A member of the RNA family "Guanidine-I riboswitch aptamer" from Bacillus sp. 1NLA3E, 105 nucleotides long.
RNA sequence: GUUAUUGUUUUCUAGGGUUCCGUGAUCAUUGAUCAGACUGGUCCGAGAGAAAACCCACUACGGCAAAAAUGUAGUGUAACACGGAGGGAUAAAAGCCCGGGAGAG
Dot-bracket structure: ......((((((..((...((((((((...)))))..).)).))....)))))).(((((((.......)))))))...(.[...(((.......))).)..]..
Rfam's curators write: This family represents a conserved RNA structure found upstream of the ykkC and yxkD genes in Bacillus subtilis and related genes in other bacteria. The function of this family is unclear although it has been suggested that it may function to switch on efflux pumps and detoxification systems in response to harmful environmental molecules.
Rfam links the family to the GO term regulation of gene expression.
The base pairs follow the family's consensus structure.